[Rfam]
RNA sequence: UAUUUUGGGCACCAUGGAAGACUAGUGAUUUUGUUGUUGUGAAGUCACCGCUACUGACAACAAGUCACAGUCUGCCUCAGUGACCAGAAUC
Numbered sequence: 001u002a003u004u005u006u007g008g009g010c011a012c013c014a015u016g017g018a019a020g021a022c023u024a025g026u027g028a029u030u031u032u033g034u035u036g037u038u039g040u041g042a043a044g045u046c047a048c049c050g051c052u053a054c055u056g057a058c059a060a061c062a063a064g065u066c067a068c069a070g071u072c073u074g075c076c077u078c079a080g081u082g083a084c085c086a087g088a089a090u091c
Stems, first nucleotide, its partner, number of pairs: 002090007010082003016076002019073005025068007033061006
Rfam assigns this 91-nucleotide RNA sequence from Sinocyclocheilus anshuiensis to the family "mir-7 microRNA precursor family". Rfam's curators write: This family represents the microRNA (miRNA) precursor mir-7. The organism belongs to Sinocyclocheilus, within Eukaryota. The match comes from Rfam's covariance-model search (75 bits). For this family Rfam cites "Identification of novel genes coding for small expressed RNAs" (Lagos-Quintana et al., Science, 2001).